[Rfam]
RNA sequence: GCCUGGUGGUUCCUAGAGUCAGCUACAAAGUGCUGAACUGUGGGUUUUUAUUAACAGGCGUAUAGUGAUUCUGCAAUUUUAUGCAUGGAAGCUGCCAUAUAGCAGCCUUCCAUAGCCCGGUUGCAGAGACAUUU
Numbered sequence: 001g002c003c004u005g006g007u008g009g010u011u012c013c014u015a016g017a018g019u020c021a022g023c024u025a026c027a028a029a030g031u032g033c034u035g036a037a038c039u040g041u042g043g044g045u046u047u048u049u050a051u052u053a054a055c056a057g058g059c060g061u062a063u064a065g066u067g068a069u070u071c072u073g074c075a076a077u078u079u080u081a082u083g084c085a086u087g088g089a090a091g092c093u094g095c096c097a098u099a100u101a102g103c104a105g106c107c108u109u110c111c112a113u114a115g116c117c118c119g120g121u122u123g124c125a126g127a128g129a130c131a132u133u134u
Stems, first nucleotide, its partner, number of pairs: 001059004007050002012044004017039001019036005071126001073124006083116002085113004090108002092105004
The record is a 134-nucleotide sequence from Anabas testudineus, which matches "Small nucleolar RNA SNORA84" in Rfam. The family's consensus secondary structure was predicted with WAR. Its family is annotated with nucleolus and RNA processing in the Gene Ontology. NCBI's taxonomy places the organism under Eukaryota, Metazoa, Teleostomi, Neoteleostei, Anabas. By type it is an H/ACA-box small nucleolar RNA.